[Rfam]
RNA: MIR8024 microRNA precursor family
RNA sequence: UUGGAGGAUUUGAAGAUUUCAACUCGCAUACUCGAAGAAUUUGAAGACUUCAACUUGCAUAUUUGGAAGAUUUAAAGACUUUAUUG
Numbered sequence: 001u002u003g004g005a006g007g008a009u010u011u012g013a014a015g016a017u018u019u020c021a022a023c024u025c026g027c028a029u030a031c032u033c034g035a036a037g038a039a040u041u042u043g044a045a046g047a048c049u050u051c052a053a054c055u056u057g058c059a060u061a062u063u064u065g066g067a068a069g070a071u072u073u074a075a076a077g078a079c080u081u082u083a084u085u086g
Base pairs, nucleotide, nucleotide: 002083003082004081005080006079009076010075011074012073013072014071017068018067019066020065021064026058027057028056032053034051035050036049037048